[Rfam]
RNA: Purine riboswitch aptamer
RNA sequence: CAUUCUUAUUAUGCAUUCACUCAUAUAAUCGCGAGAAUAUGGCUCGCAAGUUUCUACCGAUUUGCCGUAAACAAAUCGACUAUGGGUGAGCAGUGAAGGUCA
Numbered sequence: 001c002a003u004u005c006u007u008a009u010u011a012u013g014c015a016u017u018c019a020c021u022c023a024u025a026u027a028a029u030c031g032c033g034a035g036a037a038u039a040u041g042g043c044u045c046g047c048a049a050g051u052u053u054c055u056a057c058c059g060a061u062u063u064g065c066c067g068u069a070a071a072c073a074a075a076u077c078g079a080c081u082a083u084g085g086g087u088g089a090g091c092a093g094u095g096a097a098g099g100u101c102a
Stems, first nucleotide, its partner, number of pairs: 018088008029049001031047005058078007